[Rfam]
RNA sequence: CCGACGUGGAUAUCCCGGGAGGUCACUCUCCCCGGGCUCUGUCCUAGUGGCGAGCGGGAGCUUAGGGCAUUGCCCGGUGAUGUACAGUCCCUUUCCACAACGUUGGAGAUGAAGCUGGGCUUUCGAGUCUGCGCCUGCAUAUUCCUACGGCUUCUCAGAGUCCUGUGGACCAUUACUGAGGAGACAAACCAUGCAGGAAACAGUU
Number, nucleotide and partner (000 for none) at each position: 001c106002c105003g104004a103005c102006g101007u100008g044009g043010a042011u041012a040013u000014c036015c035016c034017g000018g029019g028020a027021g026022g000023u000024c000025a000026c021027u020028c019029u018030c000031c000032c000033c000034g016035g015036g014037c000038u000039c000040u012041g011042u010043c009044c008045u000046a000047g098048u097049g096050g095051c000052g000053a000054g000055c000056g091057g090058g089059a088060g085061c000062u000063u082064a081065g078066g000067g000068c000069a000070u000071u000072g000073c000074c000075c000076g000077g000078u065079g000080a000081u064082g063083u000084a000085c060086a000087g000088u059089c058090c057091c056092u000093u000094u000095c050096c049097a048098c047099a000100a007101c006102g005103u004104u003105g002106g001107a000108g000109a000110u000111g000112a000113a000114g000115c000116u000117g000118g000119g000120c000121u000122u000123u000124c000125g000126a000127g000128u000129c000130u000131g000132c000133g000134c197135c196136u195137g194138c193139a192140u191141a000142u000143u000144c000145c000146u000147a000148c000149g000150g000151c183152u182153u181154c180155u179156c178157a000158g000159a000160g170161u169162c168163c167164u000165g000166u000167g163168g162169a161170c160171c000172a000173u000174u000175a000176c000177u000178g156179a155180g154181g153182a152183g151184a000185c000186a000187a000188a000189c000190c000191a140192u139193g138194c137195a136196g135197g134198a000199a000200a000201c000202a000203g000204u000205u000
The record is a 205-nucleotide RNA from Mus spicilegus, which matches "Small nucleolar RNA SNORA73 family" in Rfam. U17 (SNORA73A and SNORA73B) also known as E1 belongs to the H/ACA class of small nucleolar RNAs (snoRNAs). Vertebrate U17 is intron-encoded and ranges in length from 200-230 nucleotides, longer than most snoRNAs. It is one of the most abundant snoRNAs in human cells and is essential for the cleavage of pre-rRNA within the 5' external transcribed spacer (ETS). This cleavage leads to the formation of 18S rRNA. Regions of the U17 RNA are complementary to rRNA and act as guides for RNA/RNA interactions, although these regions do not seem to be well conserved between organisms. Gene Ontology terms of the family: RNA processing and nucleolus.